[Rfam]
RNA sequence: GGGUUACUCCUUGGCGCUUGCGCGCUGUUUCGAUAAAGAUUCGCACCUGUAUCAAAACGGGUAACCCCACCAUUUGCAAGGUGAGACUGUCAGAUCAAGUCUGAACUUCUACACAUUAUCCGAUUUGAGCUGACAGACUUCAGCCUCUAGCUGGCGAAUGCGUUGCUGUUCGGCAAUCAGUGGUUG
Dot-bracket structure: (((((((.((...((((....)))).((((.((((.((........)).)))).)))))))))))))......(.(...((.((....(((((((...))))).)).(((..(.................)...)))..))..)).).)........................((((.....))))
Numbered sequence: 001g002g003g004u005u006a007c008u009c010c011u012u013g014g015c016g017c018u019u020g021c022g023c024g025c026u027g028u029u030u031c032g033a034u035a036a037a038g039a040u041u042c043g044c045a046c047c048u049g050u051a052u053c054a055a056a057a058c059g060g061g062u063a064a065c066c067c068c069a070c071c072a073u074u075u076g077c078a079a080g081g082u083g084a085g086a087c088u089g090u091c092a093g094a095u096c097a098a099g100u101c102u103g104a105a106c107u108u109c110u111a112c113a114c115a116u117u118a119u120c121c122g123a124u125u126u127g128a129g130c131u132g133a134c135a136g137a138c139u140u141c142a143g144c145c146u147c148u149a150g151c152u153g154g155c156g157a158a159u160g161c162g163u164u165g166c167u168g169u170u171c172g173g174c175a176a177u178c179a180g181u182g183g184u185u186g
Stems, first nucleotide, its partner, number of pairs: 001067007009060002014025004027058004032053004037048002074149001076147001080145002083141002089106002091103005108137003113131001174186004
This 186-nucleotide RNA from Chitinimonas sp. BJB300 belongs to the Rfam family "Proteobacterial sRNA psRNA2".
The base pairs follow the family's consensus structure.
Rfam 15.1 lists 122 matches to the family in 36 species.
A reference for the family is Gvakharia et al. (2010), "Computational prediction and transcriptional analysis of sRNAs in Nitrosomonas europaea", FEMS Microbiol Lett.
By type it is a small RNA.